[Rfam]
RNA: Small nucleolar RNA snoR136
Organism: Carpinus fangiana
RNA sequence: GGAACUUCAAAUCCUUUUGUUUUCUUCGUCUUGCACUAAAUUUUGUUAAUUUGUGUGAGGCUGCGUUGAAGUGAAGCCCAAGAUAUCUGUUCUCCUCGCUAUCCACUGCUUCCUUCAUGUUGCAUUAGGACGUCGGGGAACUACAUUC
Numbered sequence: 001g002g003a004a005c006u007u008c009a010a011a012u013c014c015u016u017u018u019g020u021u022u023u024c025u026u027c028g029u030c031u032u033g034c035a036c037u038a039a040a041u042u043u044u045g046u047u048a049a050u051u052u053g054u055g056u057g058a059g060g061c062u063g064c065g066u067u068g069a070a071g072u073g074a075a076g077c078c079c080a081a082g083a084u085a086u087c088u089g090u091u092c093u094c095c096u097c098g099c100u101a102u103c104c105a106c107u108g109c110u111u112c113c114u115u116c117a118u119g120u121u122g123c124a125u126u127a128g129g130a131c132g133u134c135g136g137g138g139a140a141c142u143a144c145a146u147u148c
Stems, first nucleotide, its partner, number of pairs: 001079002005076001008073002013071001016069002019066002026063001028061005035056002089141007097132002102130003112119001